This 352-nucleotide RNA sequence from Wenzhouxiangella sp. 15181 belongs to the Rfam family "Bacterial RNase P class A". The source organism's lineage runs through Bacteria, Pseudomonadati, Pseudomonadota, Gammaproteobacteria and Wenzhouxiangella. A search with the family's covariance model found it, with a score of 327 bits.

RNA sequence: AGAGUCGGCCGGACAGUCGCUGUGCCUUUUGGGCGUGGAGGAAAGUCCGGGCUUCACAGGGCAGGGUGCCAGGUAACGCCUGGGCGGUCCGCAAGGGCCGACGGAAAGUGCCGCAGAAAAUAUACCGCCGAUGGCCGCAAGGCACAGGUAAGGGUGAAAUGGUGCGGUAAGAGCGCACCGCGCGGCUGGCAACAGUCGUGGCAGGGCAAACCCCACCCGAAGCAAGGCCAAAUAGGGGUGCCAUGGCGUGGCCCGCGCCGCACCCGGGUAGGCCGCUAGAGGCGGCUGGCGACAGCCGCCCCAGAUGAAUGACUGUCCCCGACAGAACCCGGCUUACAGGCCGGCUCUCACC
Numbered sequence: 001a002g003a004g005u006c007g008g009c010c011g012g013a014c015a016g017u018c019g020c021u022g023u024g025c026c027u028u029u030u031g032g033g034c035g036u037g038g039a040g041g042a043a044a045g046u047c048c049g050g051g052c053u054u055c056a057c058a059g060g061g062c063a064g065g066g067u068g069c070c071a072g073g074u075a076a077c078g079c080c081u082g083g084g085c086g087g088u089c090c091g092c093a094a095g096g097g098c099c100g101a102c103g104g105a106a107a108g109u110g111c112c113g114c115a116g117a118a119a120a121u122a123u124a125c126c127g128c129c130g131a132u133g134g135c136c137g138c139a140a141g142g143c144a145c146a147g148g149u150a151a152g153g154g155u156g157a158a159a160u161g162g163u164g165c166g167g168u169a170a171g172a173g174c175g176c177a178c179c180g181c182g183c184g185g186c187u188g189g190c191a192a193c194a195g196u197c198g199u200g201g202c203a204g205g206g207c208a209a210a211c212c213c214c215a216c217c218c219g220a221a222g223c224a225a226g227g228c229c230a231a232a233u234a235g236g237g238g239u240g241c242c243a244u245g246g247c248g249u250g251g252c253c254c255g256c257g258c259c260g261c262a263c264c265c266g267g268g269u270a271g272g273c274c275g276c277u278a279g280a281g282g283c284g285g286c287u288g289g290c291g292a293c294a295g296c297c298g299c300c301c302c303a304g305a306u307g308a309a310u311g312a313c314u315g316u317c318c319c320c321g322a323c324a325g326a327a328c329c330c331g332g333c334u335u336a337c338a339g340g341c342c343g344g345c346u347c348u349c350a351c352c
Stems, first nucleotide, its partner, number of pairs: 001348010011337001012317007020038008043335003047332005052222004059254004064218005069083005084102001085100006103213002108211002110207003125153002127149003132144002135141001161179006180202001181200008226274004236265006245259005281300008